[Rfam]
Description: The family of this 144-nucleotide RNA sequence from Papaver somniferum is "Small nucleolar RNA Z278". A search with the family's covariance model found it, with a score of 42 bits. For this family Rfam cites "The high diversity of snoRNAs in plants: identification and comparative study of 120 snoRNA genes from Oryza sativa" (Chen et al., Nucleic Acids Res, 2003).
RNA sequence: GCCAAUGAUGAUAUUGUCUAAUUAAUUGAGGUAUAGUGGAACUGAGACCCUGUUUACAGGUAUAGUGGAACUGAGACCCUGUUUACAGGGAGAACCCCUUGGCAAAGCUAUAUUUCAAAUGACAUCAAUGGAUCUAGCUGAGGC
Numbered sequence: 001g002c003c004a005a006u007g008a009u010g011a012u013a014u015u016g017u018c019u020a021a022u023u024a025a026u027u028g029a030g031g032u033a034u035a036g037u038g039g040a041a042c043u044g045a046g047a048c049c050c051u052g053u054u055u056a057c058a059g060g061u062a063u064a065g066u067g068g069a070a071c072u073g074a075g076a077c078c079c080u081g082u083u084u085a086c087a088g089g090g091a092g093a094a095c096c097c098c099u100u101g102g103c104a105a106a107g108c109u110a111u112a113u114u115u116c117a118a119a120u121g122a123c124a125u126c127a128a129u130g131g132a133u134c135u136a137g138c139u140g141a142g143g144c
Stems, first nucleotide, its partner, number of pairs: 001144003048090005
Rfam's curators write: snoZ278 is a C/D box small nucleolar RNA. Its methylation guide targets have not been reported.